RNA: FMN riboswitch aptamer (RFN element)
Organism: Ligilactobacillus ruminis
RNA sequence: GUUAAUCUUCAGGGCAGGGUGAAAAUCCCGACCGGCGGUAUAGUCCGCGACUCUCUUAUUGAGAUUGAACUGGUUUGAUUCCAGUACCGACAGUUAUAGUCUGGAUGAAAGAAGAUAGGG
Number, nucleotide and partner (000 for none) at each position: 001g000002u000003u118004a000005a116006u115007c114008u113009u112010c111011a000012g000013g000014g000015c000016a000017g029018g028019g027020u000021g000022a000023a000024a000025a000026u000027c019028c018029c017030g000031a100032c099033c089034g088035g048036c047037g046038g045039u000040a000041u000042a000043g087044u086045c038046c037047g036048c035049g000050a000051c000052u064053c063054u000055c000056u000057u000058a000059u000060u000061g000062a000063g053064a052065u000066u000067g000068a000069a085070c084071u083072g082073g081074u000075u000076u000077g000078a000079u000080u000081c073082c072083a071084g070085u069086a044087c043088c034089g033090a000091c103092a102093g101094u000095u000096a000097u000098a000099g032100u031101c093102u092103g091104g000105a000106u000107g000108a000109a000110a000111g010112a009113a008114g007115a006116u005117a000118g003119g000120g000